The family of this 299-nucleotide sequence from Caenorhabditis angaria is "Metazoan signal recognition particle RNA".
From the family's description: The signal recognition particle (SRP) is a universally conserved ribonucleoprotein. It is involved in the co-translational targeting of proteins to membranes.
It scores 244 bits against the family's covariance model.
Rfam classes the family as a non-coding RNA gene.
RNA sequence: ACCGGGCGUCGUGGCGGGCGUCUGUGAGUCAGCUUCUUGACGGUAGAUAAGUGUGGAUGAAGUGAGAGAAGGAGUUCUGUGGAUGUUUGUCGUUAACGGCGACCGAGUGUCCGUGCCAAGCAUUGCGUCGUUAGGGGUAAAUUGGCGGAGGCCGAAUUAUCCUGGGCGGAUAAGGAGAGGCGGAUGGCUCAGGGCCGAAAGGCAGCAGGCAAAAGCUUCCGCGUUGUGCAGUGGCCGGAUAGCACUUGCGAGUUAACACACAUUCACAGCCUUCUCGAUAUCUUCAGACCACUUGUCGA
Dot-bracket structure: ((((((((((......)))))))....(((........)))))).((((((((....(((((...(((((((....((((((((...(((..(((((......(((((((((..((((.((((.((((((((.(((((((.(((((....))))).))))))).))))........(((((.....(((....(((....)))....)))....))))).)))).))))..)))).))...)))))))...))))).))).))))))))))))))).....)))))...))))))))..